This 96-nucleotide RNA sequence from Acer yangbiense belongs to the Rfam family "MIR473 microRNA precursor family".
Its family is annotated with RISC complex and miRNA-mediated post-transcriptional gene silencing in the Gene Ontology.
It scores 52 bits against the family's covariance model.
[Rfam]
RNA sequence: GUUGCUCACUCUCCCUCAAGGGCUUCCGGCAAUGACGGGUAAGAUGGUUUGCCUAGCUAGCUAGCCGGAGGCUUUUUGGGGGAGAGUGUACAAAAG
Numbered sequence: 001g002u003u004g005c006u007c008a009c010u011c012u013c014c015c016u017c018a019a020g021g022g023c024u025u026c027c028g029g030c031a032a033u034g035a036c037g038g039g040u041a042a043g044a045u046g047g048u049u050u051g052c053c054u055a056g057c058u059a060g061c062u063a064g065c066c067g068g069a070g071g072c073u074u075u076u077u078g079g080g081g082g083a084g085a086g087u088g089u090a091c092a093a094a095a096g
Stems, first nucleotide, its partner, number of pairs: 007088009017078002019075012